This 129-nucleotide RNA sequence from Tupaia belangeri belongs to the Rfam family "Small nucleolar RNA SNORA1". It scores 109 bits against the family's covariance model. The family's consensus secondary structure was predicted with PFOLD. It is annotated as an H/ACA-box small nucleolar RNA. Lineage of the source: Eukaryota > Deuterostomia > Dipnotetrapodomorpha > Theria > Tupaia belangeri. Gene Ontology terms of the family: nucleolus and RNA processing. ACA1 is a member of the H/ACA class of snoRNA that guide the sites of modification of uridines to pseudouridines.

RNA sequence: AGCCUCAUUCUAGAUUUGACUGGGCACUGUCAUUCAGUGUCCAACAUUCUUAAUGUAGCUAAACUGAGACACAGGUAAUGCUUCCAUCACAGUAGUAGCACAGUGGUGACAGUAAGACCUGCAACAUUU
Numbered sequence: 001a002g003c004c005u006c007a008u009u010c011u012a013g014a015u016u017u018g019a020c021u022g023g024g025c026a027c028u029g030u031c032a033u034u035c036a037g038u039g040u041c042c043a044a045c046a047u048u049c050u051u052a053a054u055g056u057a058g059c060u061a062a063a064c065u066g067a068g069a070c071a072c073a074g075g076u077a078a079u080g081c082u083u084c085c086a087u088c089a090c091a092g093u094a095g096u097a098g099c100a101c102a103g104u105g106g107u108g109a110c111a112g113u114a115a116g117a118c119c120u121g122c123a124a125c126a127u128u129u
Stems, first nucleotide, its partner, number of pairs: 002059002006055003021043007072121004085108006